[Rfam]
RNA sequence: ACAGAUUCAAGGUUAUAGCAGAAGUGCUCAUGGUCCAGCCUUUCAGAUUUUAGCAUAUCUGUGAAUUCUUCU
Numbered sequence: 001a002c003a004g005a006u007u008c009a010a011g012g013u014u015a016u017a018g019c020a021g022a023a024g025u026g027c028u029c030a031u032g033g034u035c036c037a038g039c040c041u042u043u044c045a046g047a048u049u050u051u052a053g054c055a056u057a058u059c060u061g062u063g064a065a066u067u068c069u070u071c072u
Stems, first nucleotide, its partner, number of pairs: 009042006017072002020069004024036001026034001044061005050055001
Dot-bracket structure: ........((((((..[[.[[[[(.(.......).))))))).(((((.(....).)))))....]]]].]]
Shown here is a 72-nucleotide sequence from Crocodylus porosus, a member of the family "Mammalian CPEB3 ribozyme". A search with the family's covariance model found it, with a score of 40 bits. NCBI's taxonomy places the organism under Eukaryota, Eumetazoa, Vertebrata, Teleostomi, Crocodylus. The mammalian CPEB3 ribozyme is a self cleaving RNA located in the second intron of the CPEB3 gene which belongs to a family of genes regulating messenger RNA polyadenylation.